Rfam assigns this 83-nucleotide sequence from Solanum tuberosum to the family "MIR8024 microRNA precursor family".
RNA sequence: UUGAGGGAUUUGAAGACUUCUACUAGCAUACUUGAAGAAUUUGAAGACUUUGACUUGCAUACUUGGAGGAUGAGACUUCUACU
Numbered sequence: 001u002u003g004a005g006g007g008a009u010u011u012g013a014a015g016a017c018u019u020c021u022a023c024u025a026g027c028a029u030a031c032u033u034g035a036a037g038a039a040u041u042u043g044a045a046g047a048c049u050u051u052g053a054c055u056u057g058c059a060u061a062c063u064u065g066g067a068g069g070a071u072g073a074g075a076c077u078u079c080u081a082c083u
Stems, first nucleotide, its partner, number of pairs: 001081001003079004009073002014071001017068004026058003032053006
Notes
Rfam links the family to the GO terms miRNA-mediated post-transcriptional gene silencing and RISC complex. The source organism's lineage runs through Eukaryota, Euphyllophyta, Magnoliopsida, lamiids and Solanum. The match comes from Rfam's covariance-model search (65 bits).